[Rfam]
RNA sequence: GUUCCUAUAGCUUAAUUUGGUUAGAGCAGUAACUUGAAGCGUUAUUGAUAUAAGUUCGAGUCUUUUUAGGGACA
Numbered sequence: 001g002u003u004c005c006u007a008u009a010g011c012u013u014a015a016u017u018u019g020g021u022u023a024g025a026g027c028a029g030u031a032a033c034u035u036g037a038a039g040c041g042u043u044a045u046u047g048a049u050a051u052a053a054g055u056u057c058g059a060g061u062c063u064u065u066u067u068a069g070g071g072a073c074a
Stems, first nucleotide, its partner, number of pairs: 001073007010027004029045005050066001052064003
This 74-nucleotide sequence from Ogataea philodendri belongs to the Rfam family "tRNA".
It scores 58 bits against the family's covariance model.
NCBI's taxonomy places the organism under Eukaryota, Fungi, Ascomycota, Pichiales, Ogataea.